Shown here is a 94-nucleotide sequence, a member of the family "PGK RNA".
By type it is a cis-regulatory element.
The sequence is in the family's curated seed alignment.
RNA sequence: AAUAAAUCCUUAUCAGCGCUAAGCAAAAGCAAUUGUUUUAUGAGAAAGUAAACUCAAAUGAUAAGACGUUGUGGUGAAUACUGAUAAUAUUCAU
Numbered sequence: 001a002a003u004a005a006a007u008c009c010u011u012a013u014c015a016g017c018g019c020u021a022a023g024c025a026a027a028a029g030c031a032a033u034u035g036u037u038u039u040a041u042g043a044g045a046a047a048g049u050a051a052a053c054u055c056a057a058a059u060g061a062u063a064a065g066a067c068g069u070u071g072u073g074g075u076g077a078a079u080a081c082u083g084a085u086a087a088u089a090u091u092c093a094u
Stems, first nucleotide, its partner, number of pairs: 009065006039057001041056004074094007